Shown here is a 73-nucleotide RNA sequence from Schmidtea mediterranea, a member of the family "mir-754 microRNA precursor family". The source organism's lineage runs through Eukaryota, Metazoa, Rhabditophora, Tricladida and Schmidtea. It is one of the family's seed sequences.
RNA sequence: ACCCAGCAUGUUGCUUGGGGUUAUUACUAUAUUUAUUAAUAUAGUUUUAUCUUCAAGCAAUAUCAGAUGUGGA
Numbered sequence: 001a002c003c004c005a006g007c008a009u010g011u012u013g014c015u016u017g018g019g020g021u022u023a024u025u026a027c028u029a030u031a032u033u034u035a036u037u038a039a040u041a042u043a044g045u046u047u048u049a050u051c052u053u054c055a056a057g058c059a060a061u062a063u064c065a066g067a068u069g070u071g072g073a
Stems, first nucleotide, its partner, number of pairs: 001070002004066001006064001008063013022049002026045008